[Rfam]
RNA sequence: AGAAGUCUUUGAGGCAAGGUGCGAGGGGAACCUCAAUUCCUGACCGGCGGUAUAAUAGUCCGCAAGCUCUUGAGAGCAGAUCCGGUGAUAUUCCGGAACCGACAGUAAAGUCUGGAUGGGAAAAGACAGUA
Numbered sequence: 001a002g003a004a005g006u007c008u009u010u011g012a013g014g015c016a017a018g019g020u021g022c023g024a025g026g027g028g029a030a031c032c033u034c035a036a037u038u039c040c041u042g043a044c045c046g047g048c049g050g051u052a053u054a055a056u057a058g059u060c061c062g063c064a065a066g067c068u069c070u071u072g073a074g075a076g077c078a079g080a081u082c083c084g085g086u087g088a089u090a091u092u093c094c095g096g097a098a099c100c101g102a103c104a105g106u107a108a109a110g111u112c113u114g115g116a117u118g119g120g121a122a123a124a125g126a127c128a129g130u131a
Stems, first nucleotide, its partner, number of pairs: 005127006017041003043111002045101002047063004058099002066077003081097005103114003
A member of the RNA family "FMN riboswitch aptamer (RFN element)" from Veillonella sp. oral taxon 780, 131 nucleotides long.
It scores 94 bits against the family's covariance model.
Rfam's curators write: The RFN element is a highly conserved domain that is found frequently in the 5'-untranslated regions of prokaryotic mRNAs that encode for flavin mononucleotide (FMN) biosynthesis and transport proteins.
The base pairs follow the family's consensus structure, which is taken from published work.
Its family is annotated with FMN binding in the Gene Ontology.
The source organism's lineage runs through Bacteria, Bacillati, Negativicutes, Veillonella and Veillonella sp. oral taxon 780.